[Rfam]
RNA: mir-7 microRNA precursor family
Organism: Hirundo rustica
RNA sequence: UGGUCUAGUUCUGUGUGGAAGACUAGUGAUUUUGUUGUUUUUAGAUAAUCGACAACAAAUCACAGUCUGCCAUAUGGCACAGGCCA
Numbered sequence: 001u002g003g004u005c006u007a008g009u010u011c012u013g014u015g016u017g018g019a020a021g022a023c024u025a026g027u028g029a030u031u032u033u034g035u036u037g038u039u040u041u042u043a044g045a046u047a048a049u050c051g052a053c054a055a056c057a058a059a060u061c062a063c064a065g066u067c068u069g070c071c072a073u074a075u076g077g078c079a080c081a082g083g084c085c086a
Stems, first nucleotide, its partner, number of pairs: 002085005008080002011077008020068005026063007034056006